[Rfam]
Nucleotides: 073
Base pairs, nucleotide, nucleotide: 001072002071003070004069005068006067007066010025011024012023013022027043028042029041030040031039049065050064051063052062053061
Number, partner (000 for none) and nucleotide at each position: 001072g002071g003070g004069g005068c006067c007066a008000u009000a010025g011024c012023u013022c014000a015000g016000c017000u018000g019000g020000u021000a022013g023012a024011g025010c026000a027043u028042c029041u030040g031039u032000c033000u034000g035000g036000c037000a038000g039031a040030c041029a042028g043027a044000a045000g046000g047000u048000c049065a050064g051063g052062g053061g054000u055000u056000c057000a058000a059000g060000u061053c062052c063051c064050c065049u066007u067006g068005g069004c070003u071002c072001c073000a
Shown here is a 73-nucleotide RNA sequence from Actinocrinis puniceicyclus, a member of the family "tRNA". The base pairs follow the family's consensus structure, which is taken from published work. Rfam classes the family as a transfer RNA. The organism belongs to Actinocrinis, within Bacteria.